[Rfam]
RNA sequence: ACAAGCAUAUUUUUAUGAUAUUAUCUAUCUAAAUUUACCAUGAAUCUAGCCUAAAUUCAAUUAAAAACAAAUAGAAAAGCAAAAUUUCUCAUGACAAGA
Numbered sequence: 001a002c003a004a005g006c007a008u009a010u011u012u013u014u015a016u017g018a019u020a021u022u023a024u025c026u027a028u029c030u031a032a033a034u035u036u037a038c039c040a041u042g043a044a045u046c047u048a049g050c051c052u053a054a055a056u057u058c059a060a061u062u063a064a065a066a067a068c069a070a071a072u073a074g075a076a077a078a079g080c081a082a083a084a085u086u087u088c089u090c091a092u093g094a095c096a097a098g099a
Stems, first nucleotide, its partner, number of pairs: 005080002017029004042058004
Listeria sRNA rli27: a 99-nucleotide RNA from Listeria monocytogenes. The source organism's lineage runs through Bacteria, Bacilli, Listeriaceae, Listeria and Listeria monocytogenes. It is one of the family's seed sequences.